Shown here is an 83-nucleotide RNA from Microtus ochrogaster, a member of the family "Small nucleolar RNA SNORD103/SNORD85". Rfam classes the family as a C/D-box small nucleolar RNA. A search with the family's covariance model found it, with a score of 98 bits. Rfam links the family to the GO terms nucleolus and RNA processing. The source organism's lineage runs through Eukaryota, Chordata, Teleostomi, Mammalia and Microtus.
RNA sequence: UCUGGCAAUGAUGACCCACUUGCCCUCACUGAGGACAAAGUCCGAUAAUGAGAAUCUUUAUUAUGGACUCGUUCUGAGCCAGG
Numbered sequence: 001u002c003u004g005g006c007a008a009u010g011a012u013g014a015c016c017c018a019c020u021u022g023c024c025c026u027c028a029c030u031g032a033g034g035a036c037a038a039a040g041u042c043c044g045a046u047a048a049u050g051a052g053a054a055u056c057u058u059u060a061u062u063a064u065g066g067a068c069u070c071g072u073u074c075u076g077a078g079c080c081a082g083g
Stems, first nucleotide, its partner, number of pairs: 001083006